[Rfam]
RNA sequence: AAUAAUUCGAGUUGCAGAAAGGCAGCAAGAGAGUGAAUCCCGAUGAGCUUACUCCGUUAAGUGACUCGGGUGAGCGAAUGAAGCUAACGCACAUGCAACUUGAAGUAUGACGGGUAUACACGCAGCAAUGGCGUAAGACGUAUUGUGCAAUCAGGCAUUUAGCGGGCUGCGGGUUGCAGCCUUGACGAUAAGACGGGAUUGAUUCUUUCUGGUAAAUUCAGUGUUGAUUCCCUCAUAAGAAGCGCUGUUUUUUCUUAUAAAAAACAGGCUGCCGAGAUUUUUUGCGCCCCUUGCGCCGCCGAUAACCGGGAGGUUGACGGCUUUGCGUUAAGACACGGGGCCAUCGGUUAUCCAUCGUCAAGCGUUACUUUGCCCGCAGCUUUGUCACUAA
Numbered sequence: 001a002a003u004a005a006u007u008c009g010a011g012u013u014g015c016a017g018a019a020a021g022g023c024a025g026c027a028a029g030a031g032a033g034u035g036a037a038u039c040c041c042g043a044u045g046a047g048c049u050u051a052c053u054c055c056g057u058u059a060a061g062u063g064a065c066u067c068g069g070g071u072g073a074g075c076g077a078a079u080g081a082a083g084c085u086a087a088c089g090c091a092c093a094u095g096c097a098a099c100u101u102g103a104a105g106u107a108u109g110a111c112g113g114g115u116a117u118a119c120a121c122g123c124a125g126c127a128a129u130g131g132c133g134u135a136a137g138a139c140g141u142a143u144u145g146u147g148c149a150a151u152c153a154g155g156c157a158u159u160u161a162g163c164g165g166g167c168u169g170c171g172g173g174u175u176g177c178a179g180c181c182u183u184g185a186c187g188a189u190a191a192g193a194c195g196g197g198a199u200u201g202a203u204u205c206u207u208u209c210u211g212g213u214a215a216a217u218u219c220a221g222u223g224u225u226g227a228u229u230c231c232c233u234c235a236u237a238a239g240a241a242g243c244g245c246u247g248u249u250u251u252u253u254c255u256u257a258u259a260a261a262a263a264a265c266a267g268g269c270u271g272c273c274g275a276g277a278u279u280u281u282u283u284g285c286g287c288c289c290c291u292u293g294c295g296c297c298g299c300c301g302a303u304a305a306c307c308g309g310g311a312g313g314u315u316g317a318c319g320g321c322u323u324u325g326c327g328u329u330a331a332g333a334c335a336c337g338g339g340g341c342c343a344u345c346g347g348u349u350a351u352c353c354a355u356c357g358u359c360a361a362g363c364g365u366u367a368c369u370u371u372g373c374c375c376g377c378a379g380c381u382u383u384g385u386c387a388c389u390a391a
Stems, first nucleotide, its partner, number of pairs: 003036001005034004011026005103158001105156002108153003114146003120141003125132002164382011183360007195231005205221002241270003245267004250262004271348005286341005300319002303316005
The family of this 391-nucleotide sequence from Paramixta manurensis is "RNase E 5' UTR element". The literature on the family includes a 2000 paper in Genes Dev by Diwa et al., "An evolutionarily conserved RNA stem-loop functions as a sensor that directs feedback regulation of RNase E gene expression". A search with the family's covariance model found it, with a score of 198 bits. Taxonomically the source falls in Paramixta (Bacteria, Pseudomonadati, Pseudomonadota, Erwiniaceae). Rfam links the family to the GO term regulation of gene expression. Rfam describes the family as follows. This family represents a conserved element found in the 5' UTR of RNase E mRNA. RNase E is a key regulatory enzyme in the pathway of mRNA degradation in E. coli that is able to auto-regulate the degradation of its own mRNA in response to changes in RNase E activity. This rne 5' UTR element acts as a sensor of cellular RNase E concentration enabling tight regulation of RNase E concentration and synthesis. It is annotated as a cis-regulatory element.